[Rfam]
A member of the RNA family "radC RNA" from Pseudomonas asplenii, 136 nucleotides long. A search with the family's covariance model found it, with a score of 72 bits. The family's consensus secondary structure is taken from published work.

RNA sequence: CUGGUCGUGCAAAGGCUGUCGAUGACAGCACCCCAGGUGACCCGAACCUUAAAGGUCACGCCGCUCCCGCGGUGGUUCUCCCCAAGGGCGAUUCGCAUCCGGCAGCUCGCCCGGUCACUACCCAUGUGAUGGAUGC
Numbered sequence: 001c002u003g004g005u006c007g008u009g010c011a012a013a014g015g016c017u018g019u020c021g022a023u024g025a026c027a028g029c030a031c032c033c034c035a036g037g038u039g040a041c042c043c044g045a046a047c048c049u050u051a052a053a054g055g056u057c058a059c060g061c062c063g064c065u066c067c068c069g070c071g072g073u074g075g076u077u078c079u080c081c082c083c084a085a086g087g088g089c090g091a092u093u094c095g096c097a098u099c100c101g102g103c104a105g106c107u108c109g110c111c112c113g114g115u116c117a118c119u120a121c122c123c124a125u126g127u128g129a130u131g132g133a134u135g136c
Stems, first nucleotide, its partner, number of pairs: 015029006037059006045077004060073005108135002114130005

By type it is a cis-regulatory element. NCBI's taxonomy places the organism under Bacteria, Gammaproteobacteria, Pseudomonadales, Pseudomonadaceae, Pseudomonas.